[Rfam]
Rfam assigns this 133-nucleotide RNA sequence from Mesorhizobium sp. 8 to the family "Alphaproteobacterial sRNA ar35".

RNA sequence: ACCGCAACGGCAAGAGCGCGGCCGAGAACCUGCAGGCAGCAUAACGAUUGCGCUGGCCUUUGACCACGGAUGUACUGGCACUGGCUGCAGAGCGCAGGUGAGAGAGGUCGGGCAAGCCCCGGCCUUUUUUCUU
Numbered sequence: 001a002c003c004g005c006a007a008c009g010g011c012a013a014g015a016g017c018g019c020g021g022c023c024g025a026g027a028a029c030c031u032g033c034a035g036g037c038a039g040c041a042u043a044a045c046g047a048u049u050g051c052g053c054u055g056g057c058c059u060u061u062g063a064c065c066a067c068g069g070a071u072g073u074a075c076u077g078g079c080a081c082u083g084g085c086u087g088c089a090g091a092g093c094g095c096a097g098g099u100g101a102g103a104g105a106g107g108u109c110g111g112g113c114a115a116g117c118c119c120c121g122g123c124c125u126u127u128u129u130u131c132u133u
Stems, first nucleotide, its partner, number of pairs: 003046002007042001009040001016037002049096006055086004061080002064078003098132001100130012112117001